Record summary: R2 RNA element: a 236-nucleotide RNA sequence from Drosophila gunungcola. This family represents the 3' UTR region of the R2 retrotransposable element. This family is known to interact with the R2-encoded reverse transcriptase in a reaction known as target primed reverse transcription (TPRT). For this family Rfam cites "Secondary structure models of the 3' untranslated regions of diverse R2 RNAs" (Ruschak et al., RNA, 2004). Rfam links the family to the GO term regulation of reverse transcription. The organism belongs to elegans subgroup (in: flies), within Eukaryota. It scores 120 bits against the family's covariance model.
[Rfam]
RNA sequence: ACGUAGCUGAUAUGUCUGGUUCAUAUCAUUGCCUGCUACCUUGGCAUUAAAAAUUUUGGAAACAAAAAGGUAUAAACACAGCCUUCGUGGUAUGAGGUGGUUUUUAGUACGUAGGCGUUGCAGAGCUAUCUCUCUCUCUUUUGGUCUGAGAUCUGCAACGAAUCGUGCAUGCGAGUUAGCGAUAUGUGUCGGAAACAAUCGAACUCGUAUCUAUGAAGAUUUUCCAUCCUCGCGUC
Numbered sequence: 001a002c003g004u005a006g007c008u009g010a011u012a013u014g015u016c017u018g019g020u021u022c023a024u025a026u027c028a029u030u031g032c033c034u035g036c037u038a039c040c041u042u043g044g045c046a047u048u049a050a051a052a053a054u055u056u057u058g059g060a061a062a063c064a065a066a067a068a069g070g071u072a073u074a075a076a077c078a079c080a081g082c083c084u085u086c087g088u089g090g091u092a093u094g095a096g097g098u099g100g101u102u103u104u105u106a107g108u109a110c111g112u113a114g115g116c117g118u119u120g121c122a123g124a125g126c127u128a129u130c131u132c133u134c135u136c137u138c139u140u141u142u143g144g145u146c147u148g149a150g151a152u153c154u155g156c157a158a159c160g161a162a163u164c165g166u167g168c169a170u171g172c173g174a175g176u177u178a179g180c181g182a183u184a185u186g187u188g189u190c191g192g193a194a195a196c197a198a199u200c201g202a203a204c205u206c207g208u209a210u211c212u213a214u215g216a217a218g219a220u221u222u223u224c225c226a227u228c229c230u231c232g233c234g235u236c
Stems, first nucleotide, its partner, number of pairs: 037072006078235002081233002094231004099225002107168005116160009126150001170209008